A member of the RNA family "pan motif" from Geomicrobium sp. JCM 19039, 89 nucleotides long. Pairs were carried over by alignment from the consensus structure, which is taken from published work. It scores 57 bits against the family's covariance model. Lineage of the source: Bacteria > Bacillati > Bacillota > Caryophanales > Geomicrobium.
RNA sequence: AUGACGGCAUCCACUACGGAGCUGUACAUGGUUUACCGGUAAUUGUAAGUAGUAAAUCUGCCUUGAUCACUGUUGACAGGGACGGAGGG
Dot-bracket structure: ((((((((.((.......))))))).)))............................((((((((.(((....)))))))).)))....